Description:
Small nucleolar RNA SNORD73: a 71-nucleotide sequence from Ornithorhynchus anatinus. The literature on the family includes a 1998 paper in Gene by Rebane et al., "A novel snoRNA (U73) is encoded within the introns of the human and mouse ribosomal protein S3a genes". Pairs were carried over by alignment from the consensus structure, which was predicted with PFOLD. It is annotated as a C/D-box small nucleolar RNA. Taxonomically the source falls in Ornithorhynchus (Eukaryota, Tetrapoda, Mammalia, Monotremata).
RNA sequence: AACGGGUGAUGACCACAUGUUUCGGUCCCAGAUGACGCCGUGUGAUUUCACCGUUGCGAUUUUCUGACGUU
Numbered sequence: 001a002a003c004g005g006g007u008g009a010u011g012a013c014c015a016c017a018u019g020u021u022u023c024g025g026u027c028c029c030a031g032a033u034g035a036c037g038c039c040g041u042g043u044g045a046u047u048u049c050a051c052c053g054u055u056g057c058g059a060u061u062u063u064c065u066g067a068c069g070u071u
Stems, first nucleotide, its partner, number of pairs: 001071004
Dot-bracket structure: ((((...............................................................))))